[Rfam]
RNA sequence: AUUGCAGGCCAGUGAUGAAAUUGUCUAGGAAGUGCCGUAUGAAACAAAGUGAUUUUGAUUUUGGACGCUGAGGCCA
Numbered sequence: 001a002u003u004g005c006a007g008g009c010c011a012g013u014g015a016u017g018a019a020a021u022u023g024u025c026u027a028g029g030a031a032g033u034g035c036c037g038u039a040u041g042a043a044a045c046a047a048a049g050u051g052a053u054u055u056u057g058a059u060u061u062u063g064g065a066c067g068c069u070g071a072g073g074c075c076a
Stems, first nucleotide, its partner, number of pairs: 007075004
Dot-bracket structure: ......((((.............................................................)))).

The family of this 76-nucleotide RNA sequence from Caenorhabditis angaria is "Nematode snoRNA ceN22". A reference for the family is Jia et al. (2007), "Systematic identification of non-coding RNA 2,2,7-trimethylguanosine cap structures in Caenorhabditis elegans", BMC Mol Biol. By type it is a C/D-box small nucleolar RNA. It scores 75 bits against the family's covariance model. Its family is annotated with RNA processing and nucleolus in the Gene Ontology.